[Rfam]
Shown here is a 142-nucleotide sequence from Shouchella oshimensis, a member of the family "FMN riboswitch aptamer (RFN element)".
Lineage of the source: Bacteria > Bacillota > Bacillaceae > Shouchella > Shouchella oshimensis.
Gene Ontology term of the family: FMN binding.
RNA sequence: ACUUAACUUCGGGGCAGGGUGAAAUUCCCUACCGGCGGUGAUAAGGCUAAAAGCCUUUUAGUCCGUGACCCGUAUUUUUUAUACGGUGGAUCUGGUGAAACUCCAGAGCCGACAGUGAAAGUCUGGAUGGGAGAAGUUUAAC
Numbered sequence: 001a002c003u004u005a006a007c008u009u010c011g012g013g014g015c016a017g018g019g020u021g022a023a024a025u026u027c028c029c030u031a032c033c034g035g036c037g038g039u040g041a042u043a044a045g046g047c048u049a050a051a052a053g054c055c056u057u058u059u060a061g062u063c064c065g066u067g068a069c070c071c072g073u074a075u076u077u078u079u080u081a082u083a084c085g086g087u088g089g090a091u092c093u094g095g096u097g098a099a100a101c102u103c104c105a106g107a108g109c110c111g112a113c114a115g116u117g118a119a120a121g122u123c124u125g126g127a128u129g130g131g132a133g134a135a136g137u138u139u140a141a142c
Stems, first nucleotide, its partner, number of pairs: 003140001005138006017029003031122002033111002035066004061109002070086002091107005113125003